[Rfam]
RNA: tRNA
Organism: Curvularia clavata
RNA sequence: GGUUGGUUGGCGCAAUGGUAGCGCGUGGCCCUCCUAUAGUAAUGCAGCCUCAAAACUGCAGAACUUCAAAGGCCAAGGCUGUGGGUUCGAGUCCCACAUCGAUCG
Numbered sequence: 001g002g003u004u005g006g007u008u009g010g011c012g013c014a015a016u017g018g019u020a021g022c023g024c025g026u027g028g029c030c031c032u033c034c035u036a037u038a039g040u041a042a043u044g045c046a047g048c049c050u051c052a053a054a055a056c057u058g059c060a061g062a063a064c065u066u067c068a069a070a071g072g073c074c075a076a077g078g079c080u081g082u083g084g085g086u087u088c089g090a091g092u093c094c095c096a097c098a099u100c101g102a103u104c105g
Base pairs, nucleotide, nucleotide: 001104002103003102004101005100006099007098010024011023012022013021026075027074028073029072030071081097082096083095084094085093